Rfam assigns this 141-nucleotide sequence from Ovis aries to the family "Small nucleolar RNA SNORD10". Its family is annotated with nucleolus and RNA processing in the Gene Ontology.

RNA sequence: GCUCUGUGAUGAACUCCAUGCGUGUCAUCUGAGCCUGGCUUCUCUGUCAUCUCAGCCCAGGUAGUGUUCUACUUCCCAAGGCUGUUGUCUUGCCUGGAAAGGGGAUCCCAGGCAAAGGAUCAACCUUUGUAUUCUGAGAGC
Numbered sequence: 001g002c003u004c005u006g007u008g009a010u011g012a013a014c015u016c017c018a019u020g021c022g023u024g025u026c027a028u029c030u031g032a033g034c035c036u037g038g039c040u041u042c043u044c045u046g047u048c049a050u051c052u053c054a055g056c057c058c059a060g061g062u063a064g065u066g067u068u069c070u071a072c073u074u075c076c077c078a079a080g081g082c083u084g085u086u087g088u089c090u091u092g093c094c095u096g097g098a099a100a101g102g103g104g105a106u107c108c109c110a111g112g113c114a115a116a117g118g119a120u121c122a123a124c125c126u127u128u129g130u131a132u133u134c135u136g137a138g139a140g141c
Base pairs, nucleotide, nucleotide: 001141002140003139004138042103043102044101045100047098048097
The base pairs follow the family's consensus structure, which was predicted with WAR. Rfam classes the family as a C/D-box small nucleolar RNA. The literature on the family includes a 2001 paper in EMBO J by Huttenhofer et al., "RNomics: an experimental approach that identifies 201 candidates for novel, small, non-messenger RNAs in mouse".